[Rfam]
RNA: Group II catalytic intron D1-D4-1
Organism: uncultured bacterium AD12-E7
RNA sequence: CGCUUCCAGGGGUAACCUUGGGAGUGAUUAAGCAGAAGUCAGCAGAGGCCAUAGUAGUCAAAUACCUACCGUAAUGGAUAGGACACGGCGAAGGGC
Numbered sequence: 001c002g003c004u005u006c007c008a009g010g011g012g013u014a015a016c017c018u019u020g021g022g023a024g025u026g027a028u029u030a031a032g033c034a035g036a037a038g039u040c041a042g043c044a045g046a047g048g049c050c051a052u053a054g055u056a057g058u059c060a061a062a063u064a065c066c067u068a069c070c071g072u073a074a075u076g077g078a079u080a081g082g083a084c085a086c087g088g089c090g091a092a093g094g095g096c
Stems, first nucleotide, its partner, number of pairs: 001026002004023008039046002048096003057089003065082003